[Rfam]
RNA sequence: UUGAUCUUUUCUAUUUUGCAAUCACUCACAGAGGGUGGGACAGGAGGAAGAGUGAUGGAAAAGGUUAA
Numbered sequence: 001u002u003g004a005u006c007u008u009u010u011c012u013a014u015u016u017u018g019c020a021a022u023c024a025c026u027c028a029c030a031g032a033g034g035g036u037g038g039g040a041c042a043g044g045a046g047g048a049a050g051a052g053u054g055a056u057g058g059a060a061a062a063g064g065u066u067a068a
Base pairs, nucleotide, nucleotide: 001068002067003066004065005064006063007062008061009060010059011058012057022055023054024053025052026051027050
Dot-bracket structure: ((((((((((((.........((((((......................)))))).))))))))))))
Background: XIST 3' intron conserved motif: a 68-nucleotide RNA sequence from Octodon degus. A search with the family's covariance model found it, with a score of 86 bits. The literature on the family includes a 2011 paper in Genome Res by Parker et al., "New families of human regulatory RNA structures identified by comparative analysis of vertebrate genomes". By type it is a long non-coding RNA. The base pairs follow the family's consensus structure, which is taken from published work.